This 311-nucleotide sequence from Aristophania vespae belongs to the Rfam family "Alphaproteobacteria transfer-messenger RNA".
A search with the family's covariance model found it, with a score of 247 bits.
Rfam classes the family as a non-coding RNA gene.
Taxonomically the source falls in Aristophania (Bacteria, Pseudomonadati, Pseudomonadota, Acetobacterales).
RNA sequence: UCUCUUGCAAAAACAUGCUUUGCUUCUUAUCUUCACAACUGCCUAGGGUUUUACUCUGGCUAUGGCGAUAAACGGUAGAUGGAAUAAGUGUUGUGGACCCGGGGCAGUACCCGGCGUCUCCACCAAAUUUCUUCCACUUUUGGGGACGAAACAGGCUCGACACGCAUGGUAAAGAUCUAUCUUUUGCCCGGCAUUGUACCGCCGUUAUCGGGCUAAACUUACAAGUGCCAACGAUAAUACUGAGGUGCUCGCUGUCGCAGCAUAAGCGAUAAGCGCGGUUCGGGGGAACCGGGCAACAGAAUCCCCCCACU
Numbered sequence: 001u002c003u004c005u006u007g008c009a010a011a012a013a014c015a016u017g018c019u020u021u022g023c024u025u026c027u028u029a030u031c032u033u034c035a036c037a038a039c040u041g042c043c044u045a046g047g048g049u050u051u052u053a054c055u056c057u058g059g060c061u062a063u064g065g066c067g068a069u070a071a072a073c074g075g076u077a078g079a080u081g082g083a084a085u086a087a088g089u090g091u092u093g094u095g096g097a098c099c100c101g102g103g104g105c106a107g108u109a110c111c112c113g114g115c116g117u118c119u120c121c122a123c124c125a126a127a128u129u130u131c132u133u134c135c136a137c138u139u140u141u142g143g144g145g146a147c148g149a150a151a152c153a154g155g156c157u158c159g160a161c162a163c164g165c166a167u168g169g170u171a172a173a174g175a176u177c178u179a180u181c182u183u184u185u186g187c188c189c190g191g192c193a194u195u196g197u198a199c200c201g202c203c204g205u206u207a208u209c210g211g212g213c214u215a216a217a218c219u220u221a222c223a224a225g226u227g228c229c230a231a232c233g234a235u236a237a238u239a240c241u242g243a244g245g246u247g248c249u250c251g252c253u254g255u256c257g258c259a260g261c262a263u264a265a266g267c268g269a270u271a272a273g274c275g276c277g278g279u280u281c282g283g284g285g286g287a288a289c290c291g292g293g294c295a296a297c298a299g300a301a302u303c304c305c306c307c308c309a310c311u
Base pairs, nucleotide, nucleotide: 041060042059043058045057046056047055048054049053064188065187066186067185068184074181075180076179077178078177079176080175089166090165091164093163094162095161099114100113101112102111103110115148116147117146118145119144120143121142189204190203191202192201194215196213199211200210276291277290278289279288282308283307284306285305286304